[Rfam]
RNA sequence: CCGGGAUAGGGGUACAUGGUCUUGCCACUGGCGACUCUCUGGACCUAAGCGAUAAUGCGAAAGCUAGCGACGAACUCCCGGCGUUAGACGGGGAGAGUGUCGGACGCGAUGUCCCCGCUGAC
Dot-bracket structure: (((((((.(((((.((......((((...))))......)).))))..((......((....))..))..).)..)))))).((((..((((((.....(((....)))..)))))).))))

Shown here is a 122-nucleotide RNA, a member of the family "Flavobacterium-1 RNA". Rfam classes the family as a small RNA.